Shown here is a 94-nucleotide sequence from Tombusvirus lycopersici, a member of the family "Tombusvirus internal replication element (IRE)".

[Rfam]
RNA sequence: GGUUUGUGAGAAGGUUGGGGUAGCCCACCGACUUGGGUAUGAUGGGUUUCUGUCAUACUACGACGGUGCGAAACUCCGUACUUACACACGAGCC
Numbered sequence: 001g002g003u004u005u006g007u008g009a010g011a012a013g014g015u016u017g018g019g020g021u022a023g024c025c026c027a028c029c030g031a032c033u034u035g036g037g038u039a040u041g042a043u044g045g046g047u048u049u050c051u052g053u054c055a056u057a058c059u060a061c062g063a064c065g066g067u068g069c070g071a072a073a074c075u076c077c078g079u080a081c082u083u084a085c086a087c088a089c090g091a092g093c094c
Base pairs, nucleotide, nucleotide: 001094002093003092004091005090006089007088008087017077018076019075020074021073026068027067028066029065030064037058038057039056040055041054042053043052044051045050